RNA sequence: AGAACUCUGUUCAAACCGAAGCUUUACGUUUAGUACGUAAAAGGUUAUUAGGAAGAAUGGAGUUUU
Numbered sequence: 001a002g003a004a005c006u007c008u009g010u011u012c013a014a015a016c017c018g019a020a021g022c023u024u025u026a027c028g029u030u031u032a033g034u035a036c037g038u039a040a041a042a043g044g045u046u047a048u049u050a051g052g053a054a055g056a057a058u059g060g061a062g063u064u065u066u
Stems, first nucleotide, its partner, number of pairs: 001066012016052002023041007
Record summary
A member of the RNA family "DUF3800-VIII RNA", 66 nucleotides long. Pairs were carried over by alignment from the consensus structure, which is taken from published work. Rfam's curators write: Bacteroidetes, Cyanobacteria, Firmicutes, Planctomycetes (1 example), Proteobacteria, Tenericutes (1 example). Rfam's curators put it in the seed alignment.